[Rfam]
Nucleotides: 087
Base pairs, nucleotide, nucleotide: 012037013036017032018031019030021028022027040081041080042079043078045077046076047075048072049071050070
Number, partner (000 for none) and nucleotide at each position: 001000a002000a003000a004000a005000u006000u007000u008000a009000u010000u011000g012037c013036c014000a015000a016000a017032c018031c019030c020000u021028g022027g023000g024000a025000a026000a027022c028021c029000u030019g031018g032017g033000g034000a035000c036013g037012g038000a039000a040081a041080g042079c043078c044000a045077c046076g047075g048072g049071a050070c051000u052000a053000a054000c055000u056000c057000c058000u059000a060000a061000a062000a063000u064000c065000a066000c067000c068000c069000a070050g071049u072048c073000a074000g075047c076046c077045g078043g079042g080041u081040u082000g083000c084000u085000g086000g087000a